The family of this 247-nucleotide RNA is "bip internal ribosome entry site (IRES)". About the family: This family represents the bip internal ribosome entry site (IRES). BiP protein expression has been found to be significantly enhanced by the heat shock response due to IRES-dependent translation. It is thought that this translational mechanism is essential for the survival of cells under stress. The base pairs follow the family's consensus structure, which was predicted with PFOLD. On this family, see Kim and Jang, Biochem Biophys Res Commun 2002: "Continuous heat shock enhances translational initiation directed by internal ribosomal entry site".
RNA sequence: CGCCGGCCAAGACAGCACAGACAGAUUGACCUAUUGGGGUGUUUCGCGAGUGUGAGAGGGAAGCGCCGCGGCCUGUAUUUCUAGACCUGCCCUUCGCCUGGUUCGUGGCGCCUUGUGACCCCGGGCCCCUGCCGCCUGCAAGUCGAAAUUGCGCUGUGCUCCUGUGCUACGGCCUGUGGCUGGACUGCCUGCUGCUGCCCAACUGGCUGGCAAGAUGAAGCUCUCCCUGGUGGCCGCGAUGCUGCUG
Numbered sequence: 001c002g003c004c005g006g007c008c009a010a011g012a013c014a015g016c017a018c019a020g021a022c023a024g025a026u027u028g029a030c031c032u033a034u035u036g037g038g039g040u041g042u043u044u045c046g047c048g049a050g051u052g053u054g055a056g057a058g059g060g061a062a063g064c065g066c067c068g069c070g071g072c073c074u075g076u077a078u079u080u081c082u083a084g085a086c087c088u089g090c091c092c093u094u095c096g097c098c099u100g101g102u103u104c105g106u107g108g109c110g111c112c113u114u115g116u117g118a119c120c121c122c123g124g125g126c127c128c129c130u131g132c133c134g135c136c137u138g139c140a141a142g143u144c145g146a147a148a149u150u151g152c153g154c155u156g157u158g159c160u161c162c163u164g165u166g167c168u169a170c171g172g173c174c175u176g177u178g179g180c181u182g183g184a185c186u187g188c189c190u191g192c193u194g195c196u197g198c199c200c201a202a203c204u205g206g207c208u209g210g211c212a213a214g215a216u217g218a219a220g221c222u223c224u225c226c227c228u229g230g231u232g233g234c235c236g237c238g239a240u241g242c243u244g245c246u247g
Stems, first nucleotide, its partner, number of pairs: 004236006015167006034124007063111009170182005
Dot-bracket structure: ...((((((.....((((((.............(((((((......................(((((((((...............................)))))))))......))))))).....................................))))))..(((((...)))))................................................))))))...........